[Rfam]
RNA sequence: AAUUAAUAAUUACAUACAGUUCAAGAGCAAACACCGGAUUGAACCAGUAUGUCUAUUAGUG
Numbered sequence: 001a002a003u004u005a006a007u008a009a010u011u012a013c014a015u016a017c018a019g020u021u022c023a024a025g026a027g028c029a030a031a032c033a034c035c036g037g038a039u040u041g042a043a044c045c046a047g048u049a050u051g052u053c054u055a056u057u058a059g060u061g
Base pairs, nucleotide, nucleotide: 013051014050015049016048017047019044020043021042022041023040024039028036